The family of this 134-nucleotide RNA sequence from Microcebus murinus is "Small nucleolar RNA SNORA32".

RNA sequence: CAGCCUCCAAGGCUUUUAGAAUGCAGUUUCUCAUUUGCUGUGGACAUGACCAUAAAAACAAAACAAACAAAAAAAACUUCCCACUAGAUUUUCUAUCUGCUACCUUGCUAGCAAUCAGCCUAUUGGGAACAUUU
Numbered sequence: 001c002a003g004c005c006u007c008c009a010a011g012g013c014u015u016u017u018a019g020a021a022u023g024c025a026g027u028u029u030c031u032c033a034u035u036u037g038c039u040g041u042g043g044a045c046a047u048g049a050c051c052a053u054a055a056a057a058a059c060a061a062a063a064c065a066a067a068c069a070a071a072a073a074a075a076a077c078u079u080c081c082c083a084c085u086a087g088a089u090u091u092u093c094u095a096u097c098u099g100c101u102a103c104c105u106u107g108c109u110a111g112c113a114a115u116c117a118g119c120c121u122a123u124u125g126g127g128a129a130c131a132u133u134u
Stems, first nucleotide, its partner, number of pairs: 001048002007043003023038004080127004087120001089118002098113003
About the family: ACA32 is a member of the H/ACA class of snoRNA that guide the sites of modification of uridines to pseudouridines.